Streptomyces-metH RNA: a 121-nucleotide RNA sequence from Streptomyces kaniharaensis. Lineage of the source: Bacteria > Bacillati > Actinomycetota > Kitasatosporales > Streptomyces.
[Rfam]
RNA sequence: GCGCUCAGGAUACGAAAUGCUCCUCCGGGCCGGGGCGCAGGACGGAUACCCUGGCCACGUGCGUCCCCGACCAAGCGGGUUCGCAAAGCCGACAGCCGUCGCACCAGGGAGAAGCCCCAUG
Numbered sequence: 001g002c003g004c005u006c007a008g009g010a011u012a013c014g015a016a017a018u019g020c021u022c023c024u025c026c027g028g029g030c031c032g033g034g035g036c037g038c039a040g041g042a043c044g045g046a047u048a049c050c051c052u053g054g055c056c057a058c059g060u061g062c063g064u065c066c067c068c069g070a071c072c073a074a075g076c077g078g079g080u081u082c083g084c085a086a087a088g089c090c091g092a093c094a095g096c097c098g099u100c101g102c103a104c105c106a107g108g109g110a111g112a113a114g115c116c117c118c119a120u121g
Base pairs, nucleotide, nucleotide: 060085061084062083063082066079067078068077069076088102089101091100092099093098